[Rfam]
Description: Rfam assigns this 134-nucleotide RNA sequence from Kangiella geojedonensis to the family "Ribosomal S15 leader". Rfam links the family to the GO term regulation of translation, ncRNA-mediated. The match comes from Rfam's covariance-model search (68 bits).

RNA sequence: UGAACUGGCUGAAUUAGUGAUUGGCUGGUUCGUACGUAAACACUGAGUGGACUCACUCAAAAUUGGAGAUACAAACUAUGUCACUAAGUGCAGAAAAGAAAGCAGAAAUCGUACAAGAACAUGGUCGCGGUGAA
Numbered sequence: 001u002g003a004a005c006u007g008g009c010u011g012a013a014u015u016a017g018u019g020a021u022u023g024g025c026u027g028g029u030u031c032g033u034a035c036g037u038a039a040a041c042a043c044u045g046a047g048u049g050g051a052c053u054c055a056c057u058c059a060a061a062a063u064u065g066g067a068g069a070u071a072c073a074a075a076c077u078a079u080g081u082c083a084c085u086a087a088g089u090g091c092a093g094a095a096a097a098g099a100a101a102g103c104a105g106a107a108a109u110c111g112u113a114c115a116a117g118a119a120c121a122u123g124g125u126c127g128c129g130g131u132g133a134a
Base pairs, nucleotide, nucleotide: 007026008025009024010023011022012021063087064086065085066084068082
Record summary: Pairs were carried over by alignment from the consensus structure, which is taken from published work. Rfam classes the family as a cis-regulatory leader.